[Rfam]
RNA sequence: UUCAUAGACAUGGGGAGCUGGAUGAAGGCCGGCUGAGAGUGCGUCCCAAGCAAGACGCUGACCCUUAUACCUGAUCUGGAUAAUGCCAGCGUAGGAAGAGCUAUUGUCAAUUUG
Number, nucleotide and partner (000 for none) at each position: 001u000002u000003c000004a000005u000006a102007g101008a000009c000010a000011u000012g064013g063014g062015g000016a059017g033018c032019u031020g030021g029022a000023u000024g000025a000026a000027g000028g000029c021030c020031g019032g018033c017034u000035g000036a000037g000038a000039g000040u000041g058042c057043g056044u055045c000046c000047c000048a000049a000050g000051c000052a000053a000054g000055a044056c043057g042058c041059u016060g000061a000062c014063c013064c012065u000066u000067a000068u000069a000070c095071c094072u093073g092074a000075u000076c089077u088078g087079g086080a000081u000082a000083a000084u000085g000086c079087c078088a077089g076090c000091g000092u073093a072094g071095g070096a000097a000098g000099a000100g000101c007102u006103a000104u000105u000106g000107u000108c000109a000110a000111u000112u000113u000114g000
Background:
Rfam assigns this 114-nucleotide RNA sequence from Paenibacillus yonginensis to the family "TPP riboswitch aptamer (THI element)". The base pairs follow the family's consensus structure, which is taken from published work. Rfam's curators write: Vitamin B(1) in its active form thiamin pyrophosphate (TPP) is an essential coenzyme that is synthesised by coupling of pyrimidine and thiazole moieties in bacteria.